Bacterial large signal recognition particle RNA: a 263-nucleotide RNA sequence from Clostridium sp. CAG:167. Rfam classes the family as a non-coding RNA gene. The literature on the family includes a 2003 paper in Nucleic Acids Res by Rosenblad et al., "SRPDB: Signal Recognition Particle Database". Taxonomically the source falls in Clostridium (Bacteria, Bacillota, Eubacteriales, Clostridiaceae).
[Rfam]
Nucleotides: 263
Stems, first nucleotide, its partner, number of pairs: 001263006008056003011029004016024003033053005061256006070247004076241003082235004089227002093224006101217002103214003112208008120197006126188002129186005136177004145170004153162003
Number, partner (000 for none) and nucleotide at each position: 001263c002262c003261g004260u005259a006258c007000a008056g009055c010054u011029g012028g013027g014026g015000a016024g017023u018022u019000a020000g021000c022018g023017g024016u025000g026014c027013c028012c029011u030000g031000u032000a033053c034052c035051u036050g037049c038000a039000a040000u041000c042000c043000g044000c045000u046000a047000u048000a049037g050036c051035a052034g053033g054010a055009g056008u057000g058000u059000u060000g061256c062255c063254c064253u065252a066251u067000c068000g069000a070247g071246g072245g073244u074000u075000u076241u077240g078239g079000a080000a081000c082235a083234a084233a085232g086000c087000g088000c089227u090226g091000c092000c093224c094223g095222g096221a097220g098219u099000a100000a101217g102216u103214g104213g105212c106000g107000u108000u109000g110000a111000a112208g113207u114206u115205u116204g117203g118202g119201u120197c121196u122195u123194g124193u125192g126188c127187a128000a129186c130185a131184g132183a133182a134000a135000c136177u137176u138175g139174c140000g141000a142000a143000c144000c145170g146169u147168g148167u149000c150000a151000g152000g153162u154161c155160a156000g157000g158000a159000a160155u161154g162153a163000a164000g165000c166000a167148g168147c169146a170145c171000u172000a173000a174139g175138c176137a177136a178000a179000a180000c181000u182133u183132u184131c185130u186129g187127u188126g189000u190000g191000a192125c193124g194123c195122g196121a197120g198000g199000a200000a201119g202118c203117c204116u205115g206114a207113a208112c209000g210000g211000a212105g213104u214103c215000a216102a217101c218000u219098g220097c221096u222095u223094c224093g225000g226090u227089a228000a229000c230000g231000g232085c233084u234083u235082u236000a237000g238000a239078c240077c241076a242000u243000c244073a245072u246071u247070c248000g249000a250000c251066a252065u253064a254063g255062g256061g257000c258006g259005u260004a261003c262002g263001g